Rfam assigns this 288-nucleotide RNA sequence from Futiania mangrovi to the family "5' ureB small RNA". The organism belongs to Futiania, within Bacteria. A search with the family's covariance model found it, with a score of 91 bits.
RNA sequence: GUCCUCCACCUGCUGCGGGCAGAUGUAGUGGAUGUGCGCGUCGAAUCCGCCCGCGGUCAGGAUCUUGCCCUCCCCCGCGAUGACCUCGGUGCCCGGUCCGAUCACGAUGCCGACGCCCGGCUGGACGUCCGGGUUGCCGGCCUUGCCGAUGGCGGCGAUGCGCCCGUCGCGCAAGGCGACGUCGGCCUUGACGAUCCCCCAAUGGUCGACGAUCAGCGCGUUGGUGAUGACGGUGUCGGCGCUGCCGGAGGCCCGCGUCGCCUGCGACUGGCCCAUACCGUCGCGGAU
Number, nucleotide and partner (000 for none) at each position: 001g288002u287003c000004c285005u000006c283007c000008a281009c000010c000011u157012g156013c155014u154015g153016c152017g075018g074019g073020c000021a071022g070023a000024u000025g000026u000027a000028g000029u000030g051031g050032a000033u049034g048035u000036g047037c000038g000039c000040g000041u000042c000043g000044a000045a000046u000047c036048c034049g033050c031051c030052c000053g000054c000055g000056g068057u067058c000059a000060g000061g000062a000063u000064c000065u000066u000067g057068c056069c000070c022071u021072c000073c019074c018075c017076c000077g146078c000079g000080a143081u000082g141083a000084c139085c000086u000087c000088g000089g137090u136091g134092c133093c132094c131095g129096g128097u127098c124099c123100g000101a122102u000103c120104a000105c000106g116107a000108u000109g000110c000111c000112g000113a000114c000115g000116c106117c000118c000119g000120g103121c000122u101123g099124g098125a000126c000127g097128u096129c095130c000131g094132g093133g092134u091135u000136g090137c089138c000139g084140g000141c082142c000143u080144u000145g000146c077147c000148g000149a000150u000151g000152g016153c015154g014155g013156c012157g011158a000159u000160g000161c000162g000163c000164c271165c270166g269167u000168c000169g000170c266171g265172c264173a263174a000175g261176g258177c257178g000179a000180c000181g000182u000183c000184g000185g219186c218187c000188u216189u215190g214191a000192c000193g000194a000195u000196c000197c000198c000199c208200c000201a000202a000203u000204g000205g000206u000207c000208g199209a000210c000211g000212a000213u000214c190215a189216g188217c000218g186219c185220g000221u000222u255223g254224g253225u000226g000227a000228u000229g000230a243231c000232g000233g242234u241235g240236u000237c000238g000239g000240c235241g234242c233243u230244g000245c000246c000247g000248g000249a000250g000251g000252c000253c224254c223255g222256c000257g177258u176259c000260g000261c175262c000263u173264g172265c171266g170267a000268c000269u166270g165271g164272c000273c000274c000275a000276u000277a000278c000279c000280g000281u008282c000283g006284c000285g004286g000287a002288u001